[Rfam]
This 67-nucleotide RNA sequence from Bacillus sp. V59.32b belongs to the Rfam family "Bacillaceae-1 RNA". By type it is a small RNA. Rfam 15.1 lists 5,721 matches to the family in 247 species. It scores 82 bits against the family's covariance model.
RNA sequence: AAUAAAGGAAGAACGACUAAGAACGCAACAUCCUGUUGCAACGUCGUUCUGACCCACAUCCUGUGGG
Numbered sequence: 001a002a003u004a005a006a007g008g009a010a011g012a013a014c015g016a017c018u019a020a021g022a023a024c025g026c027a028a029c030a031u032c033c034u035g036u037u038g039c040a041a042c043g044u045c046g047u048u049c050u051g052a053c054c055c056a057c058a059u060c061c062u063g064u065g066g067g
Stems, first nucleotide, its partner, number of pairs: 011049007025039005053067005